[Rfam]
RNA sequence: CAAAAACUUCAGGGUAGGGUGCAAGUCCCAACCGGCGGUAUACCCCGCGAGCCUUUGGGCAUGAAUCGGUGCAAUUCCGAUGGCGACAGUAAAGUCUGGAUGAAAGAAGUUGAUU
Numbered sequence: 001c002a003a004a005a006a007c008u009u010c011a012g013g014g015u016a017g018g019g020u021g022c023a024a025g026u027c028c029c030a031a032c033c034g035g036c037g038g039u040a041u042a043c044c045c046c047g048c049g050a051g052c053c054u055u056u057g058g059g060c061a062u063g064a065a066u067c068g069g070u071g072c073a074a075u076u077c078c079g080a081u082g083g084c085g086a087c088a089g090u091a092a093a094g095u096c097u098g099g100a101u102g103a104a105a106g107a108a109g110u111u112g113a114u115u
Stems, first nucleotide, its partner, number of pairs: 005111006017029003031095002033085002035048004043083002053059001065081005087098003
Overview: The record is a 115-nucleotide RNA sequence from Dielma fastidiosa, which matches "FMN riboswitch aptamer (RFN element)" in Rfam. It scores 103 bits against the family's covariance model. Pairs were carried over by alignment from the consensus structure, which is taken from published work. NCBI's taxonomy places the organism under Bacteria, Bacillati, Erysipelotrichia, Erysipelotrichales, Dielma.